Rfam assigns this 82-nucleotide RNA sequence from Zingiber officinale to the family "Small nucleolar RNA snoR53Y". On this family, see Brown et al., RNA 2001: "Multiple snoRNA gene clusters from Arabidopsis". NCBI's taxonomy places the organism under Eukaryota, Viridiplantae, Streptophytina, Embryophyta, Zingiber. It scores 58 bits against the family's covariance model.
RNA sequence: GUUCCCGAUGAUGUUUGUCAUUUUUUACCAUGCUAAUGCUGAAAUAUUUUGACGAACCUUCACUGUGUAUCCUGAGGGAACU
Numbered sequence: 001g002u003u004c005c006c007g008a009u010g011a012u013g014u015u016u017g018u019c020a021u022u023u024u025u026u027a028c029c030a031u032g033c034u035a036a037u038g039c040u041g042a043a044a045u046a047u048u049u050u051g052a053c054g055a056a057c058c059u060u061c062a063c064u065g066u067g068u069a070u071c072c073u074g075a076g077g078g079a080a081c082u
Base pairs, nucleotide, nucleotide: 001081002080003079004078005077